[Rfam]
RNA: Eukaryotic large subunit ribosomal RNA, nucleotides 3291 to 3890
RNA sequence: UGCUCUAGGUUUGACAUUGUGAAAAGACAUAGAGGGUGUAGAAUAGGUGGGAGCUUCGGCGCCGGUGAAAUACCACUACCUUUAUCGUUUUUUUACUUAUUCAAUGAAGCGGAACUGGGCUUCACCGCCCAACUUCUAGCGUUAAGGUCCCUCGCGGGCCGAUCCGGGUUGAAGACAUUGUCAGGUGGGGAGUUUGGCUGGGGCGGCACAUCUGUUAAACCAUAACGCAGGUGUCCUAAGGGGGACUCAUGGAGAACAGAAAUCUCCAGUAGAACAAAAGGGUAAAAGUCCCCUUGAUUUUGAUUUUCAGUGUGAAUACAAACCAUGAAAGUGUGGCCUAUCGAUCCUUUAGUCCCUCGAAAUUUGAGGCUAGAGGUGCCAGAAAAGUUACCACAGGGAUUAGCCAAUUGUCCCUGGAAGAGGGGUUGCAGCUUUGCAACCCCAAGAAGCCAAAACCUGGUUUUGGCGUUGCAUCUGGUUCUGGGAAUGUUUAUAGGGAUGCCUUUAGGGUCCCAUCAGCCAUCCAGAGGUGACUGCGGGCUUCGACCUCAGCACUGAAACGCUCGGUAAGAUGCAGGGCUAUCGUAUACGAUAGCCUAU
Numbered sequence: 001u002g003c004u005c006u007a008g009g010u011u012u013g014a015c016a017u018u019g020u021g022a023a024a025a026g027a028c029a030u031a032g033a034g035g036g037u038g039u040a041g042a043a044u045a046g047g048u049g050g051g052a053g054c055u056u057c058g059g060c061g062c063c064g065g066u067g068a069a070a071u072a073c074c075a076c077u078a079c080c081u082u083u084a085u086c087g088u089u090u091u092u093u094u095a096c097u098u099a100u101u102c103a104a105u106g107a108a109g110c111g112g113a114a115c116u117g118g119g120c121u122u123c124a125c126c127g128c129c130c131a132a133c134u135u136c137u138a139g140c141g142u143u144a145a146g147g148u149c150c151c152u153c154g155c156g157g158g159c160c161g162a163u164c165c166g167g168g169u170u171g172a173a174g175a176c177a178u179u180g181u182c183a184g185g186u187g188g189g190g191a192g193u194u195u196g197g198c199u200g201g202g203g204c205g206g207c208a209c210a211u212c213u214g215u216u217a218a219a220c221c222a223u224a225a226c227g228c229a230g231g232u233g234u235c236c237u238a239a240g241g242g243g244g245a246c247u248c249a250u251g252g253a254g255a256a257c258a259g260a261a262a263u264c265u266c267c268a269g270u271a272g273a274a275c276a277a278a279a280g281g282g283u284a285a286a287a288g289u290c291c292c293c294u295u296g297a298u299u300u301u302g303a304u305u306u307u308c309a310g311u312g313u314g315a316a317u318a319c320a321a322a323c324c325a326u327g328a329a330a331g332u333g334u335g336g337c338c339u340a341u342c343g344a345u346c347c348u349u350u351a352g353u354c355c356c357u358c359g360a361a362a363u364u365u366g367a368g369g370c371u372a373g374a375g376g377u378g379c380c381a382g383a384a385a386a387g388u389u390a391c392c393a394c395a396g397g398g399a400u401u402a403g404c405c406a407a408u409u410g411u412c413c414c415u416g417g418a419a420g421a422g423g424g425g426u427u428g429c430a431g432c433u434u435u436g437c438a439a440c441c442c443c444a445a446g447a448a449g450c451c452a453a454a455a456c457c458u459g460g461u462u463u464u465g466g467c468g469u470u471g472c473a474u475c476u477g478g479u480u481c482u483g484g485g486a487a488u489g490u491u492u493a494u495a496g497g498g499a500u501g502c503c504u505u506u507a508g509g510g511u512c513c514c515a516u517c518a519g520c521c522a523u524c525c526a527g528a529g530g531u532g533a534c535u536g537c538g539g540g541c542u543u544c545g546a547c548c549u550c551a552g553c554a555c556u557g558a559a560a561c562g563c564u565c566g567g568u569a570a571g572a573u574g575c576a577g578g579g580c581u582a583u584c585g586u587a588u589a590c591g592a593u594a595g596c597c598u599a600u
Base pairs, nucleotide, nucleotide: 002193003192004191005190010185011184012183013182014181015180016179019096020095021094022093023092024091025090026089027088028087029085030084031083032082033081034080035079046077047076048075049074050073053060054059100173101172102171103170104169110166111165112164113163118129119128120127146160147159148158149157150156196209197207198206199205210232211231212230213229214228215227235336236335241293242292243291244290245289246288247273248272250268251267252266253265254264255263274283275282298322299321300320303317304316305315306314324333325332326331